[Rfam]
RNA sequence: UAAUUAUCAAGAAAGACUGAGGGAUAGGCCCGAUGAUGUCUUAGCAACCUAUACGCCCAUUGGUAUAAAGGUGCUAAUUCCUAUCUGUAGCGAUACAGAAAAGAUAAUGU
Numbered sequence: 001u002a003a004u005u006a007u008c009a010a011g012a013a014a015g016a017c018u019g020a021g022g023g024a025u026a027g028g029c030c031c032g033a034u035g036a037u038g039u040c041u042u043a044g045c046a047a048c049c050u051a052u053a054c055g056c057c058c059a060u061u062g063g064u065a066u067a068a069a070g071g072u073g074c075u076a077a078u079u080c081c082u083a084u085c086u087g088u089a090g091c092g093a094u095a096c097a098g099a100a101a102a103g104a105u106a107a108u109g110u
Stems, first nucleotide, its partner, number of pairs: 003108006013042005021031003025083004043075004048071002050067004079102001084099006
The record is a 110-nucleotide RNA from Mucilaginibacter pedocola, which matches "SAM riboswitch aptamer (S box leader)" in Rfam. Taxonomically the source falls in Mucilaginibacter (Bacteria, Pseudomonadati, Sphingobacteriia, Sphingobacteriales). Rfam's curators write: The SAM riboswitch is found upstream of a number of genes which code for proteins involved in methionine or cysteine biosynthesis in Gram-positive bacteria. Its family is annotated with regulation of gene expression in the Gene Ontology.